[Rfam]
RNA sequence: ACGGCCUCCGGUUCACCUCCGCGCCCGCGGGGGACCCGGGACC
Numbered sequence: 001a002c003g004g005c006c007u008c009c010g011g012u013u014c015a016c017c018u019c020c021g022c023g024c025c026c027g028c029g030g031g032g033g034a035c036c037c038g039g040g041a042c043c
Stems, first nucleotide, its partner, number of pairs: 003043002008039004016033007

This 43-nucleotide RNA sequence from Actinomyces gaoshouyii belongs to the Rfam family "L31-Actinobacteria ribosomal protein leader". Rfam classes the family as a cis-regulatory leader. The match comes from Rfam's covariance-model search (38 bits). Pairs were carried over by alignment from the consensus structure, which is taken from published work.